[Rfam]
RNA sequence: ACAAGUUCACAGCCACAGCAGAAGUGCUCAUAGUACAGCUCUGUCAUUUUCUGAAGAAUCUGUGAAGUCUGCU
Numbered sequence: 001a002c003a004a005g006u007u008c009a010c011a012g013c014c015a016c017a018g019c020a021g022a023a024g025u026g027c028u029c030a031u032a033g034u035a036c037a038g039c040u041c042u043g044u045c046a047u048u049u050u051c052u053g054a055a056g057a058a059u060c061u062g063u064g065a066a067g068u069c070u071g072c073u
Base pairs, nucleotide, nucleotide: 011040012039013038017073018072019071020070021069022068024036025035026034045062046061049058050057051056
RNA: Mammalian CPEB3 ribozyme